[Rfam]
RNA sequence: CGCUGAAACUGUGGAGGAACUAUUGGUGUGAUUUGUUCAUUUAAUCAUAUCACAGCCAUUAGUUACUUCACAGUUUCAGUA
Numbered sequence: 001c002g003c004u005g006a007a008a009c010u011g012u013g014g015a016g017g018a019a020c021u022a023u024u025g026g027u028g029u030g031a032u033u034u035g036u037u038c039a040u041u042u043a044a045u046c047a048u049a050u051c052a053c054a055g056c057c058a059u060u061a062g063u064u065a066c067u068u069c070a071c072a073g074u075u076u077c078a079g080u081a
Stems, first nucleotide, its partner, number of pairs: 003079008015068003018064004024058001025056001027054006034047002
A member of the RNA family "mir-2944 microRNA precursor family" from Tribolium castaneum, 81 nucleotides long. It is one of the family's seed sequences. The base pairs follow the family's consensus structure, which was predicted with RNAalifold.